The family of this 202-nucleotide sequence is "IS605-orfB-I RNA". Pairs were carried over by alignment from the consensus structure, which is taken from published work. Rfam classes the family as a small RNA.

RNA sequence: GCCUUAUAAAGAUGUAUGAACGCAAGACAGUUUGGCAUCUCCCUUUAAGGCCUUGUUCAAUUAGAAACUUCAAUGACAAGUCUUAUUGUGGGGCGUUCGUCGAAAUGAGAUAAAUUGGAGUGGAAUAGGUUAACCGUUAGACCUUGAGUUGAAAAAUUCUAAAAUUGAUCUCAAAAAGGUUACGUUUUUGAGUAACGGUGAG
Numbered sequence: 001g002c003c004u005u006a007u008a009a010a011g012a013u014g015u016a017u018g019a020a021c022g023c024a025a026g027a028c029a030g031u032u033u034g035g036c037a038u039c040u041c042c043c044u045u046u047a048a049g050g051c052c053u054u055g056u057u058c059a060a061u062u063a064g065a066a067a068c069u070u071c072a073a074u075g076a077c078a079a080g081u082c083u084u085a086u087u088g089u090g091g092g093g094c095g096u097u098c099g100u101c102g103a104a105a106u107g108a109g110a111u112a113a114a115u116u117g118g119a120g121u122g123g124a125a126u127a128g129g130u131u132a133a134c135c136g137u138u139a140g141a142c143c144u145u146g147a148g149u150u151g152a153a154a155a156a157u158u159c160u161a162a163a164a165u166u167g168a169u170c171u172c173a174a175a176a177a178g179g180u181u182a183c184g185u186u187u188u189u190g191a192g193u194a195a196c197g198g199u200g201a202g
Stems, first nucleotide, its partner, number of pairs: 001051006008044001010040006017034005022028001067121008081110007092101002127144005133199006139165001146159005170192008178183001